[Rfam]
RNA: L31-Corynebacteriaceae ribosomal protein leader
RNA sequence: ACUCGGGCACGACCUUAGGGGUGCGGCACUCGUACCGCGUCCCGGGACCGACCCGUAGUAACCAACCUGAGGGA
Numbered sequence: 001a002c003u004c005g006g007g008c009a010c011g012a013c014c015u016u017a018g019g020g021g022u023g024c025g026g027c028a029c030u031c032g033u034a035c036c037g038c039g040u041c042c043c044g045g046g047a048c049c050g051a052c053c054c055g056u057a058g059u060a061a062c063c064a065a066c067c068u069g070a071g072g073g074a
Stems, first nucleotide, its partner, number of pairs: 001059003004055004013046003018043009